[Rfam]
RNA sequence: ACCCGCUUCUUGAUCGAGAUCUCCAGCCGCCCAUCCGGCAGCUCACCUGGCUCACUUCCCCGGAGCCAGGCGGGCAGCAGGGUAGGCGCGGAUGGGGAUCUGGACCAAGAAGCACAGCACC
Numbered sequence: 001a002c003c004c005g006c007u008u009c010u011u012g013a014u015c016g017a018g019a020u021c022u023c024c025a026g027c028c029g030c031c032c033a034u035c036c037g038g039c040a041g042c043u044c045a046c047c048u049g050g051c052u053c054a055c056u057u058c059c060c061c062g063g064a065g066c067c068a069g070g071c072g073g074g075c076a077g078c079a080g081g082g083u084a085g086g087c088g089c090g091g092a093u094g095g096g097g098a099u100c101u102g103g104a105c106c107a108a109g110a111a112g113c114a115c116a117g118c119a120c121c
Stems, first nucleotide, its partner, number of pairs: 010108003014104002018100002021097005027091004031085001033083002041075004046070008